[Rfam]
RNA sequence: AGCGCAUCUAGGCUGAUCUCCGAAAGCAAGAAACCUUAUCUUGUUGGUGCGCUCCUACCAAUAAGG
Dot-bracket structure: ((((((((..((.......))....(((((...[[[[[[))))).)))))))).......]]]]]]